[Rfam]
RNA sequence: GGAUGUGAGGGUGACAUGGCUGCGAUAUCUGUCACCCCACUGAUCUCCAGGGUUGAUUCAGCUGAUCUGGCUGGCUAGGCAGGUGUCCCCUUCUGCUACCAAGGCUCCAUGUAUGUCCCUCCCAAAGCUGCAACCUCGGUCAAAGAUGAAAACCUCCACAAAGGAGAAGGUACUGCCCAUCAGUCAAGGGUAUACAGCAGCUGGAAUAAUGUCCUACAGCCUCCCAACUAGCUCAAGGUACUUUUAUAGGAGAACAUUGGGUAGUCAAGCUUCCAGGACUACAGACACCCAAGUCUCACCCAAGAGAUUUGGAGAGGAGAU
Numbered sequence: 001g002g003a004u005g006u007g008a009g010g011g012u013g014a015c016a017u018g019g020c021u022g023c024g025a026u027a028u029c030u031g032u033c034a035c036c037c038c039a040c041u042g043a044u045c046u047c048c049a050g051g052g053u054u055g056a057u058u059c060a061g062c063u064g065a066u067c068u069g070g071c072u073g074g075c076u077a078g079g080c081a082g083g084u085g086u087c088c089c090c091u092u093c094u095g096c097u098a099c100c101a102a103g104g105c106u107c108c109a110u111g112u113a114u115g116u117c118c119c120u121c122c123c124a125a126a127g128c129u130g131c132a133a134c135c136u137c138g139g140u141c142a143a144a145g146a147u148g149a150a151a152a153c154c155u156c157c158a159c160a161a162a163g164g165a166g167a168a169g170g171u172a173c174u175g176c177c178c179a180u181c182a183g184u185c186a187a188g189g190g191u192a193u194a195c196a197g198c199a200g201c202u203g204g205a206a207u208a209a210u211g212u213c214c215u216a217c218a219g220c221c222u223c224c225c226a227a228c229u230a231g232c233u234c235a236a237g238g239u240a241c242u243u244u245u246a247u248a249g250g251a252g253a254a255c256a257u258u259g260g261g262u263a264g265u266c267a268a269g270c271u272u273c274c275a276g277g278a279c280u281a282c283a284g285a286c287a288c289c290c291a292a293g294u295c296u297c298a299c300c301c302a303a304g305a306g307a308u309u310u311g312g313a314g315a316g317g318a319g320a321u
Base pairs, nucleotide, nucleotide: 001108002107003106006101007100010097011096013093014092018090019089024087025086026085027084028083029082030081031080032079033078035074036073037070038069039068042067043066044065045064047061116170117169119166120165121164122139123138125136127135140162147158148157200270201269202268210263212261213260214259216257221252222251223250224249227247230244231243293321294320295319297316299314301312
RNA: 7SK RNA
Organism: Pycnonotus jocosus